Shown here is an 87-nucleotide sequence from Pyrus ussuriensis x Pyrus communis, a member of the family "MIR398 microRNA precursor family".

[Rfam]
RNA sequence: AGGGGCUCCACAGGAGUGACCUGAGAUCACACGUAGCGUUUGUGUAUUGCGCUUGAUGUGUUCUCAGGUCGCCCCUGUGGUACCUUC
Numbered sequence: 001a002g003g004g005g006c007u008c009c010a011c012a013g014g015a016g017u018g019a020c021c022u023g024a025g026a027u028c029a030c031a032c033g034u035a036g037c038g039u040u041u042g043u044g045u046a047u048u049g050c051g052c053u054u055g056a057u058g059u060g061u062u063c064u065c066a067g068g069u070c071g072c073c074c075c076u077g078u079g080g081u082a083c084c085u086u087c
Stems, first nucleotide, its partner, number of pairs: 008080001011077004016072004023065004028060004
On this family, see Zeng et al., Nucleic Acids Res 2010: "Conservation and divergence of microRNAs and their functions in Euphorbiaceous plants". It scores 65 bits against the family's covariance model.